A member of the RNA family "Small nucleolar RNA SNORA9" from Sciurus vulgaris, 134 nucleotides long. The source organism's lineage runs through Eukaryota, Metazoa, Deuterostomia, Amniota and Sciurus. ACA9 is a member of the H/ACA class of snoRNA that guide the sites of modification of uridines to pseudouridines. The family's RNA type in Rfam is H/ACA-box small nucleolar RNA.
[Rfam]
Nucleotides: 134
Base pairs, nucleotide, nucleotide: 003059004058005057006056007055008054018043019042020041023037024036025035026034027033070127071126072125073124074123085113086112087111089109090108092106093105094104
Number, partner (000 for none) and nucleotide at each position: 001000g002000u003059g004058c005057a006056a007055g008054c009000c010000u011000u012000c013000c014000a015000g016000c017000a018043u019042g020041c021000u022000g023037g024036a025035g026034u027033u028000u029000g030000g031000g032000u033027a034026a035025c036024u037023c038000a039000g040000a041020g042019c043018a044000u045000u046000c047000c048000c049000a050000c051000a052000g053000u054008g055007c056006u057005u058004g059003c060000u061000a062000g063000a064000g065000u066000g067000u068000u069000c070127u071126g072125a073124a074123g075000u076000g077000g078000c079000u080000u081000g082000a083000g084000g085113c086112c087111u088000u089109g090108c091000c092106c093105u094104g095000u096000c097000a098000c099000u100000u101000c102000c103000u104094c105093a106092g107000a108090g109089c110000u111087g112086g113085g114000u115000c116000a117000u118000a119000g120000g121000c122000a123074c124073u125072u126071c127070a128000g129000a130000c131000a132000g133000u134000u